[Rfam]
RNA sequence: AGUAAUAAAGUCUACUUAUAAUAGAUGUAUUGGACUCGGGGGCGGUACCCGACGUCUCCACCAAAUUUAAUUAUAAGCUAAAUGGGGACGAAAUUAGCUUCGACAAGCAUUCAAAGAAGUAGUUUUACUCAGGGUGAUUCCUGUAAAUGAUCAUAUUAUAAUUGCAAACAAAAAGUUUGUACCUGCUAACAAUAAUAAUGCUUUCGCACUAGCUGCAUAG
Dot-bracket structure: (((((........((((........(((.(((...(((((.......)))))(((((((........................))))))).............)))))).......))))....)))))((((......)))).............................................................................

A member of the RNA family "permuted transfer-messenger RNA" from Candidatus Aquarickettsia rohweri, 220 nucleotides long.
The base pairs follow the family's consensus structure, which is taken from published work.
Bacterial tmRNA, also known as 10Sa RNA or SsrA, is named for its dual tRNA and mRNA-like properties. Its role is to liberate the mRNA from a stalled ribosome.